RNA sequence: UUUCCAACAUCGCUGAGUUCCGUAAGGGAACGGGGGAACCGCAUCGCGGACGUCAAACGUUACGCUGUUUGAUGAAUGGGGUGUUUUUUAAGGGGUGAAUCUUGGGGCAGAUAGCUGCUCCCGAGUAGGGCGACUCUCAAGUCCGAAUCCGUCAGCUAACCUCGUAAGCGUUCUGAGAGAGGUAAC
Numbered sequence: 001u002u003u004c005c006a007a008c009a010u011c012g013c014u015g016a017g018u019u020c021c022g023u024a025a026g027g028g029a030a031c032g033g034g035g036g037a038a039c040c041g042c043a044u045c046g047c048g049g050a051c052g053u054c055a056a057a058c059g060u061u062a063c064g065c066u067g068u069u070u071g072a073u074g075a076a077u078g079g080g081g082u083g084u085u086u087u088u089u090a091a092g093g094g095g096u097g098a099a100u101c102u103u104g105g106g107g108c109a110g111a112u113a114g115c116u117g118c119u120c121c122c123g124a125g126u127a128g129g130g131c132g133a134c135u136c137u138c139a140a141g142u143c144c145g146a147a148u149c150c151g152u153c154a155g156c157u158a159a160c161c162u163c164g165u166a167a168g169c170g171u172u173c174u175g176a177g178a179g180a181g182g183u184a185a186c
Base pairs, nucleotide, nucleotide: 011170012169013168014167018029019028020027030165031164032163033162034161035160040092093150094149095148101125102124103123104122105121106120107119128144129143130142131141
A member of the RNA family "c-di-AMP riboswitch aptamer (ydaO/yuaA leader)" from Paenibacillus sp. PvR098, 186 nucleotides long. Taxonomically the source falls in Paenibacillus (Bacteria, Bacilli, Caryophanales, Paenibacillaceae). The literature on the family includes a 2004 paper in Proc Natl Acad Sci U S A by Barrick et al., "New RNA motifs suggest an expanded scope for riboswitches in bacterial genetic control".